The family of this 99-nucleotide sequence is "RT-9 RNA". The base pairs follow the family's consensus structure, which is taken from published work.
RNA sequence: GUCAUUCGCGGCUACGGCUUCGAGUGCGUGUCCUUGUUAUACUUCAAGGGAGAGGUAAUCCUUCGCCUUGUCCAAGACGGCGUAAAAACAGUGACGCCC
Numbered sequence: 001g002u003c004a005u006u007c008g009c010g011g012c013u014a015c016g017g018c019u020u021c022g023a024g025u026g027c028g029u030g031u032c033c034u035u036g037u038u039a040u041a042c043u044u045c046a047a048g049g050g051a052g053a054g055g056u057a058a059u060c061c062u063u064c065g066c067c068u069u070g071u072c073c074a075a076g077a078c079g080g081c082g083u084a085a086a087a088a089c090a091g092u093g094a095c096g097c098c099c
Stems, first nucleotide, its partner, number of pairs: 003026006010019003064082004

Annotation: By type it is a small RNA.